[Rfam]
Nucleotides: 343
Base pairs, nucleotide, nucleotide: 001339002338003337004336005335006334007333008332009331010330011328012308013307014306015305016304017303018302020041021040024037025036026035027034028033046326047325048324050323051322052321053320054319055212056211057210058209062245063244064243065242068207069206070205071204072086073085074084075083076082087101088099089098090097091096102203103202107201108200109197110196111195123144124143125140126139127138128137129136130135152170153169154168155167156166157165172192173190174189175188176187177186178185179184216265217264218263219262226255227254230251236250237249238248239247240246272291273290274289275288276287277286278285279284
Number, partner (000 for none) and nucleotide at each position: 001339c002338g003337a004336g005335u006334a007333a008332g009331u010330c011328a012308g013307a014306u015305g016304g017303u018302c019000g020041c021040g022000g023000a024037c025036g026035u027034g028033a029000u030000u031000a032000u033028u034027c035026a036025c037024g038000g039000a040021c041020g042000a043000g044000g045000a046326a047325a048324g049000u050323c051322c052321g053320a054319g055212c056211u057210c058209c059000a060000u061000a062245g063244g064243g065242c066000a067000a068207g069206g070205u071204g072086c073085u074084g075083g076082g077000u078000a079000a080000u081000a082076c083075c084074c085073a086072g087101u088099g089098g090097a091096g092000g093000c094000g095000a096091c097090u098089c099088c100000a101087a102203g103202g104000a105000a106000a107201g108200u109197g110196c111195a112000a113000c114000a115000g116000a117000a118000a119000u120000a121000g122000a123144c124143c125140g126139c127138c128137a129136g130135a131000g132000a133000a134000a135130u136129c137128u138127g139126g140125u141000a142000a143124g144123g145000a146000u147000g148000g149000a150000a151000a152170g153169g154168u155167g156166a157165g158000g159000u160000a161000a162000g163000a164000g165157c166156u167155c168154a169153c170152c171000a172192g173190c174189a175188a176187c177186u178185a179184g180000g181000c182000g183000a184179c185178u186177a187176g188175u189174u190173g191000g192172c193000u194000c195111u196110g197109u198000a199000a200108a201107c202103c203102c204071c205070a206069c207068c208000c209058g210057g211056a212055g213000c214000a215000a216265g217264a218263c219262c220000a221000a222000g223000u224000a225000g226255g227254g228000a229000c230251u231000a232000a233000a234000a235000a236250g237249c238248g239247g240246c241000u242065g243064c244063c245062c246240g247239c248238c249237g250236u251230g252000u253000c254227c255226c256000g257000u258000g259000g260000u261000a262219g263218g264217u265216c266000g267000c268000u269000u270000g271000a272291a273290u274289c275288u276287a277286c278285u279284g280000g281000c282000a283000a284279c285278a286277g287276u288275a289274g290273a291272u292000c293000u294000a295000g296000a297000a298000a299000g300000a301000u302018g303017g304016c305015u306014g307013u308012c309000a310000a311000a312000u313000a314000c315000a316000g317000a318000a319054c320053u321052c322051g323050g324048c325047u326046u327000a328011u329000a330010g331009a332008u333007u334006u335005a336004c337003u338002c339001g340000u341000u342000u343000c

The record is a 343-nucleotide RNA sequence from Anaerosolibacter carboniphilus, which matches "Bacterial RNase P class A" in Rfam.
Lineage of the source: Bacteria > Bacillati > Bacillota > Thermotaleaceae > Anaerosolibacter.
Ribonuclease P (RNase P) is a ubiquitous endoribonuclease, found in archaea, bacteria and eukarya as well as chloroplasts and mitochondria. Its best characterised activity is the generation of mature 5'-ends of tRNAs by cleaving the 5'-leader elements of precursor-tRNAs.
Its family is annotated with tRNA processing, dimeric ribonuclease P complex and ribonuclease P activity in the Gene Ontology.